[Rfam]
Bacterial large signal recognition particle RNA: a 261-nucleotide RNA from Lachnospiraceae bacterium XBB1006.
RNA sequence: CUGUGCAGCCGGGGAGCUAGCGGUUCCCUGUACCUACAUCGCUAUAGUAGGGGUGAUAUCCUGCCCCGGGUUGUGAGGUGUGUAGCUGCCCUUAAUAAGUGGUAUUGACGUUUGGGUCUUACGCGACGGGAACCGGCGAACCGUGUCAGGUUGGGAACAAAGCAGCACUAAGUCGGACCUCUCGGGUGCCGUGAGGGUGCCUGGACCGAGCUAACUGUUAAGGUAACGUGCGGGCUAAGCAAUUCAAAGCAGGAUGCACAG
Numbered sequence: 001c002u003g004u005g006c007a008g009c010c011g012g013g014g015a016g017c018u019a020g021c022g023g024u025u026c027c028c029u030g031u032a033c034c035u036a037c038a039u040c041g042c043u044a045u046a047g048u049a050g051g052g053g054u055g056a057u058a059u060c061c062u063g064c065c066c067c068g069g070g071u072u073g074u075g076a077g078g079u080g081u082g083u084a085g086c087u088g089c090c091c092u093u094a095a096u097a098a099g100u101g102g103u104a105u106u107g108a109c110g111u112u113u114g115g116g117u118c119u120u121a122c123g124c125g126a127c128g129g130g131a132a133c134c135g136g137c138g139a140a141c142c143g144u145g146u147c148a149g150g151u152u153g154g155g156a157a158c159a160a161a162g163c164a165g166c167a168c169u170a171a172g173u174c175g176g177a178c179c180u181c182u183c184g185g186g187u188g189c190c191g192u193g194a195g196g197g198u199g200c201c202u203g204g205a206c207c208g209a210g211c212u213a214a215c216u217g218u219u220a221a222g223g224u225a226a227c228g229u230g231c232g233g234g235c236u237a238a239g240c241a242a243u244u245c246a247a248a249g250c251a252g253g254a255u256g257c258a259c260a261g
Stems, first nucleotide, its partner, number of pairs: 001261006008054003011029008033051005060253005068245006077236003081232004087225002091222006099215002101212003110206008118195006124186001127184005133176005143168004151160003
The match comes from Rfam's covariance-model search (170 bits). The organism belongs to Lachnospiraceae, within Bacteria.